[Rfam]
Record summary: Rfam assigns this 196-nucleotide RNA from Francisella tularensis to the family "6S / SsrS RNA". A reference for the family is Wassarman and Storz (2000), "6S RNA regulates E. coli RNA polymerase activity", Cell. Rfam classes the family as a non-coding RNA gene. About the family: E. coli 6S RNA was the first non coding RNA to be sequenced, but its function was unknown until recently. It consists of 184 nucleotides that fold into an extended hairpin structure with a large single-stranded internal bulge. The 6S RNA specifically associates with RNA polymerase holoenzyme containing the sigma70 specificity factor. This interaction represses expression from a sigma70-dependent promoter during stationary phase. 6S RNA homologs have recently been identified in most bacterial genomes. Many Gram-positive species have two copies of 6S RNA. In Bacillus subtilis, both copies appear to interact with RNA polymerase holoenzyme containing the housekeeping sigma factor and be expressed during different stages of growth. In many proteobacteria, 6S RNA may be processed from a transcript encoding homologs of the E. coli YgfA protein which is a putative 5-formyltetrahydrofolate cycloligase activity. The source organism's lineage runs through Bacteria, Pseudomonadota, Thiotrichales, Francisella tularensis and Francisella tularensis subsp. tularensis. Rfam 15.1 lists 5,006 matches to the family in 4,638 species.
RNA sequence: AGUUGUCUGGGUUAUUGGUGAUUUAGUUACAAUCUUGUACCGAUACUACUUAGAAAAGGGAGCCUUGGUGUUUUGACUAGAGAGCAAGCUUUGAUGCUCUUGCAUUGACAAAGAAGCCCAACGUUGAAACUAUGGCACCCACCUUGAUACCAUAGGGAUCAAGAAUAUUGAACUAAAACGGUAAUCUGGACAACUA
Numbered sequence: 001a002g003u004u005g006u007c008u009g010g011g012u013u014a015u016u017g018g019u020g021a022u023u024u025a026g027u028u029a030c031a032a033u034c035u036u037g038u039a040c041c042g043a044u045a046c047u048a049c050u051u052a053g054a055a056a057a058g059g060g061a062g063c064c065u066u067g068g069u070g071u072u073u074u075g076a077c078u079a080g081a082g083a084g085c086a087a088g089c090u091u092u093g094a095u096g097c098u099c100u101u102g103c104a105u106u107g108a109c110a111a112a113g114a115a116g117c118c119c120a121a122c123g124u125u126g127a128a129a130c131u132a133u134g135g136c137a138c139c140c141a142c143c144u145u146g147a148u149a150c151c152a153u154a155g156g157g158a159u160c161a162a163g164a165a166u167a168u169u170g171a172a173c174u175a176a177a178a179c180g181g182u183a184a185u186c187u188g189g190a191c192a193a194c195u196a
Stems, first nucleotide, its partner, number of pairs: 002194014018179002032166002035163001036161002040157002058140003062136003066132002072129003076125001078123001084117002089113005